[Rfam]
RNA sequence: AUUUCUAAAUUGCUGAAACCAUAUGGUAUGGGGGAACCAUUUUCGUGGGUUGAUAUACAAUCCAAGGGGUGAAUCCUUUAGAAGGUAGGGCUAUUAAAAAGGGCCGAAUCCGACAGCUAACCUAAGUAAGUGUAUAUGAAAAAGAAG
Numbered sequence: 001a002u003u004u005c006u007a008a009a010u011u012g013c014u015g016a017a018a019c020c021a022u023a024u025g026g027u028a029u030g031g032g033g034g035a036a037c038c039a040u041u042u043u044c045g046u047g048g049g050u051u052g053a054u055a056u057a058c059a060a061u062c063c064a065a066g067g068g069g070u071g072a073a074u075c076c077u078u079u080a081g082a083a084g085g086u087a088g089g090g091c092u093a094u095u096a097a098a099a100a101g102g103g104c105c106g107a108a109u110c111c112g113a114c115a116g117c118u119a120a121c122c123u124a125a126g127u128a129a130g131u132g133u134a135u136a137u138g139a140a141a142a143a144g145a146a147g
Stems, first nucleotide, its partner, number of pairs: 011132004018027003028127001029125001031123003038066001067111003075085004088105002091102001
Shown here is a 147-nucleotide RNA sequence from Peribacillus loiseleuriae, a member of the family "c-di-AMP riboswitch aptamer (ydaO/yuaA leader)". Pairs were carried over by alignment from the consensus structure.